[Rfam]
RNA: Bacterial large subunit ribosomal RNA, nucleotides 1367 to 1750
RNA sequence: GAUAAAGCGGGUGAAAAACCCGCUCGCCGAAAACCUAAGGAUUCCUGAGUAAAGCUAAUCUUCUCAGGGUUAGUCGAUCCCUAAGCCGAGGCCGAAAGGCGUAGGUGAUGGCAAACAGGUUAAUAUUCCUGUACCACCGUGUUAUCGUUUGAGAGAAGGGGGGACGCAGGAGGGCAGGUCAUCCGUCUGCUGGAAUAGACGGUUUAAGCAUGUAGGCUGAAAGGACAGGUAAAUCCGUUCUUUCAAACGGCUGAGAUGCGAUGAGGAGGAGCUUGCUCCAUAAACUGACUGAUCCCAUGCUGCCAAGAAAAGCCUCUAUCGAGAUAACAAGGUGAUCGUACCGCAAACCGACACAGGUAGGUGGGGAGAGAAUCCCAAGGCGCU
Numbered sequence: 001g002a003u004a005a006a007g008c009g010g011g012u013g014a015a016a017a018a019c020c021c022g023c024u025c026g027c028c029g030a031a032a033a034c035c036u037a038a039g040g041a042u043u044c045c046u047g048a049g050u051a052a053a054g055c056u057a058a059u060c061u062u063c064u065c066a067g068g069g070u071u072a073g074u075c076g077a078u079c080c081c082u083a084a085g086c087c088g089a090g091g092c093c094g095a096a097a098g099g100c101g102u103a104g105g106u107g108a109u110g111g112c113a114a115a116c117a118g119g120u121u122a123a124u125a126u127u128c129c130u131g132u133a134c135c136a137c138c139g140u141g142u143u144a145u146c147g148u149u150u151g152a153g154a155g156a157a158g159g160g161g162g163g164a165c166g167c168a169g170g171a172g173g174g175c176a177g178g179u180c181a182u183c184c185g186u187c188u189g190c191u192g193g194a195a196u197a198g199a200c201g202g203u204u205u206a207a208g209c210a211u212g213u214a215g216g217c218u219g220a221a222a223g224g225a226c227a228g229g230u231a232a233a234u235c236c237g238u239u240c241u242u243u244c245a246a247a248c249g250g251c252u253g254a255g256a257u258g259c260g261a262u263g264a265g266g267a268g269g270a271g272c273u274u275g276c277u278c279c280a281u282a283a284a285c286u287g288a289c290u291g292a293u294c295c296c297a298u299g300c301u302g303c304c305a306a307g308a309a310a311a312g313c314c315u316c317u318a319u320c321g322a323g324a325u326a327a328c329a330a331g332g333u334g335a336u337c338g339u340a341c342c343g344c345a346a347a348c349c350g351a352c353a354c355a356g357g358u359a360g361g362u363g364g365g366g367a368g369a370g371a372a373u374c375c376c377a378a379g380g381c382g383c384u
Base pairs, nucleotide, nucleotide: 006024007023008022009021010020011019025382026381027380028379033362034361035360036359039342040341044068045067046066047065048064049063053061054060075338076337077336078335080111081110085106086105087104089102091100092099093098115132116131117130118129119128135334136333137332138331140329141328142327143326144325145324153320154319157317158316159315160314161313166303167302168301169300172296173295174294177290178289179288180287181286183202184201185200186199187198204264205263208259209258210257211256215252216251217250220243221242222241223240224239225238226237228236229235267281268279269278270277271276348357349356364376365375366374367373